[Rfam]
RNA sequence: GGCAGAUGAUGGAGGUUUUCUCACGGUGGUCUGCGGAUGCCACUGUGGGCAGUGCUCAAAGCGCCAAUGGCUCAGCUAAUGCCAGGGG
Numbered sequence: 001g002g003c004a005g006a007u008g009a010u011g012g013a014g015g016u017u018u019u020c021u022c023a024c025g026g027u028g029g030u031c032u033g034c035g036g037a038u039g040c041c042a043c044u045g046u047g048g049g050c051a052g053u054g055c056u057c058a059a060a061g062c063g064c065c066a067a068u069g070g071c072u073c074a075g076c077u078a079a080u081g082c083c084a085g086g087g088g
Stems, first nucleotide, its partner, number of pairs: 001083004
Dot-bracket structure: ((((...........................................................................)))).....
Annotation: This 88-nucleotide sequence from Camelus dromedarius belongs to the Rfam family "Small nucleolar RNA SNORD35". Rfam 15.1 lists 1,842 matches to the family in 634 species. Gene Ontology terms of the family: nucleolus and RNA processing. Taxonomically the source falls in Camelus (Eukaryota, Boreoeutheria, Laurasiatheria, Tylopoda). For this family Rfam cites "Intron-encoded, antisense small nucleolar RNAs: the characterization of nine novel species points to their direct role as guides for the 2'-O-ribose methylation of rRNAs" (Nicoloso et al., J Mol Biol, 1996).